The record is a 112-nucleotide RNA sequence from Conger conger, which matches "U5 spliceosomal RNA" in Rfam. The match comes from Rfam's covariance-model search (80 bits). The family has 180 seed sequences and 28,527 matches in Rfam 15.1. U5 RNA is a component of both types of known spliceosome. The precise function of this molecule is unknown, though it is known that the 5' loop is required for splice site selection and p220 binding, and that both the 3' stem-loop and the Sm site are important for Sm protein binding and cap methylation. By type it is a spliceosomal small nuclear RNA.

RNA sequence: UCGCUCGGGUUUCUCUUCAGCACGCACAAAUCUUUCGCCUUUUACUAAAGAUUUCCGUGGAGAGGAACGCACCUGAGUUUGUGCUAUUUUUGGAUGCUCCGUCCACAGGACC
Number, nucleotide and partner (000 for none) at each position: 001u000002c000003g078004c077005u076006c075007g000008g000009g068010u067011u066012u065013c064014u063015c062016u061017u060018c059019a058020g000021c000022a000023c000024g000025c000026a000027c000028a054029a053030a052031u051032c050033u049034u048035u047036c000037g000038c000039c000040u000041u000042u000043u000044a000045c000046u000047a035048a034049a033050g032051a031052u030053u029054u028055c000056c000057g000058u019059g018060g017061a016062g015063a014064g013065g012066a011067a010068c009069g000070c000071a000072c000073c000074u000075g006076a005077g004078u003079u000080u000081g000082u000083g000084c000085u000086a000087u000088u000089u000090u000091u000092g000093g000094a000095u000096g112097c000098u110099c109100c108101g000102u000103c000104c000105a000106c000107a000108g100109g099110a098111c000112c096